The record is a 93-nucleotide RNA from Oryzias melastigma, which matches "Small nucleolar RNA U83B" in Rfam. Rfam classes the family as a C/D-box small nucleolar RNA. The family has 21 seed sequences and 966 matches in Rfam 15.1. Lineage of the source: Eukaryota > Chordata > Actinopteri > Adrianichthyoidei > Oryzias. For this family Rfam cites "Characterisation of the U83 and U84 small nucleolar RNAs: two novel 2'-O-ribose methylation guide RNAs that lack complementarities to ribosomal RNAs" (Jady and Kiss, Nucleic Acids Res, 2000).
[Rfam]
RNA sequence: UAAGUUCAGUGAAGAGACUCUGGAUCUGGGUCUGGACCAGGGUCUGAUCUGGACUGAAGGUGGAUUUAGAUCUGGAUUUUUCCUGAGUUCUUA
Numbered sequence: 001u002a003a004g005u006u007c008a009g010u011g012a013a014g015a016g017a018c019u020c021u022g023g024a025u026c027u028g029g030g031u032c033u034g035g036a037c038c039a040g041g042g043u044c045u046g047a048u049c050u051g052g053a054c055u056g057a058a059g060g061u062g063g064a065u066u067u068a069g070a071u072c073u074g075g076a077u078u079u080u081u082c083c084u085g086a087g088u089u090c091u092u093a
Base pairs, nucleotide, nucleotide: 001093002092003091004090